The family of this 81-nucleotide sequence from Rhinolophus ferrumequinum is "mir-130 microRNA precursor family". A reference for the family is Lagos-Quintana et al. (2002), "Identification of tissue-specific microRNAs from mouse", Curr Biol. The family has 9 seed sequences and 2,580 matches in Rfam 15.1. The source organism's lineage runs through Eukaryota, Craniata, Teleostomi, Laurasiatheria and Rhinolophus.

RNA sequence: GCCUGCCCGACACUCUUUCCCUGUUGCACUACUGUGGGCCGCUGGGAGGCAGUGCAAUGAUGAAAGGGCAUCGGUCAGGUC
Numbered sequence: 001g002c003c004u005g006c007c008c009g010a011c012a013c014u015c016u017u018u019c020c021c022u023g024u025u026g027c028a029c030u031a032c033u034g035u036g037g038g039c040c041g042c043u044g045g046g047a048g049g050c051a052g053u054g055c056a057a058u059g060a061u062g063a064a065a066g067g068g069c070a071u072c073g074g075u076c077a078g079g080u081c
Base pairs, nucleotide, nucleotide: 001081003079005076007074008073009072010071013068014067015066016065017064018063019062022059023058024057025056026055027054028053029052030051